[Rfam]
RNA sequence: CCUCCAUUUCUUGGCAUGCAUGUGGUUGUUCAGUACUCAUGUGUGCAAUGUACGGAGGGAAACCAAGGCCACGCAUGUCAUCGGUACCGGUCUGUGUUAUCGUCUGCCGGUUCUAUCCUCAAUCGCUGUCACAUUC
Numbered sequence: 001c002c003u004c005c006a007u008u009u010c011u012u013g014g015c016a017u018g019c020a021u022g023u024g025g026u027u028g029u030u031c032a033g034u035a036c037u038c039a040u041g042u043g044u045g046c047a048a049u050g051u052a053c054g055g056a057g058g059g060a061a062a063c064c065a066a067g068g069c070c071a072c073g074c075a076u077g078u079c080a081u082c083g084g085u086a087c088c089g090g091u092c093u094g095u096g097u098u099a100u101c102g103u104c105u106g107c108c109g110g111u112u113c114u115a116u117c118c119u120c121a122a123u124c125g126c127u128g129u130c131a132c133a134u135u136c
Stems, first nucleotide, its partner, number of pairs: 001058005015045006022038001024037003072125002087110004092106001094104001
Dot-bracket structure: (((((.........((((((.(.(((........)))).))))))........))))).............((.............((((.(.(.........).))))).............))...........
A member of the RNA family "Small nucleolar RNA SNORA57" from Notothenia coriiceps, 136 nucleotides long. On this family, see Vitali et al., Nucleic Acids Res 2003: "Identification of 13 novel human modification guide RNAs". Its family is annotated with nucleolus and RNA processing in the Gene Ontology. Lineage of the source: Eukaryota > Eumetazoa > Deuterostomia > Percomorphaceae > Notothenia. Rfam classes the family as an H/ACA-box small nucleolar RNA. Rfam's curators write: U99 belongs to the H/ACA class of snoRNAs which are thought to guide the sites of modification of uridines to pseudouridines, the target for this family is unknown. A search with the family's covariance model found it, with a score of 81 bits.